[Rfam]
Background
A member of the RNA family "SAH (S-adenosyl-L-homocysteine) riboswitch aptamer" from Nitrosomonas mobilis, 83 nucleotides long. The family's consensus secondary structure is taken from published work.
RNA sequence: CUGUACCGAGGAGCGCUGCAGCGUGUUAUUAACGUGAGGCUCGUACAGAAUUAUUCUUCAAGUAACAACGGCGCUCUUUUAUC
Dot-bracket structure: .((((.(((............(((.......)))......)))))))....................................

Taxonomically the source falls in Nitrosomonas (Bacteria, Pseudomonadota, Nitrosomonadales, Nitrosomonadaceae).